[Rfam]
Nucleotides: 116
Stems, first nucleotide, its partner, number of pairs: 004054007012046002024100003031091004039115001
Number, partner (000 for none) and nucleotide at each position: 001000u002000u003000a004054a005053u006052g007051u008050g009049u010048u011000u012046u013045u014000a015000u016000a017000u018000g019000a020000u021000u022000a023000u024100c025099u026098u027000a028000a029000a030000a031091c032090g033089g034088g035000c036000u037000u038000u039115u040000g041000g042000u043000a044000u045013a046012a047000u048010a049009a050008u051007g052006u053005a054004u055000a056000u057000u058000u059000a060000u061000u062000u063000u064000u065000u066000a067000u068000a069000u070000g071000a072000u073000a074000g075000g076000a077000g078000u079000g080000u081000a082000u083000a084000g085000u086000g087000g088034c089033c090032c091031g092000u093000a094000u095000a096000g097000c098026a099025g100024g101000c102000a103000u104000u105000a106000a107000u108000a109000u110000u111000c112000c113000a114000g115039a116000u
The record is a 116-nucleotide RNA sequence from Pantoea sp. Mhis, which matches "Alpha operon ribosome binding site" in Rfam.
It is annotated as a cis-regulatory element.
A reference for the family is Schlax et al. (2001), "Translational repression of the Escherichia coli alpha operon mRNA: importance of an mRNA conformational switch and a ternary entrapment complex", J Biol Chem.
Pairs were carried over by alignment from the consensus structure, which is taken from published work.
Its family is annotated with ribosome binding in the Gene Ontology.
The bacterial alpha operon ribosome binding site is surrounded by this complex pseudoknotted structure. Translation of the mRNA produces 4 ribosomal protein products, one of which (S4) acts as a translational repressor by binding to the nested pseudoknot region. The mechanism of repression is thought to involve a conformational switch in the pseudoknot region and ribosome entrapment.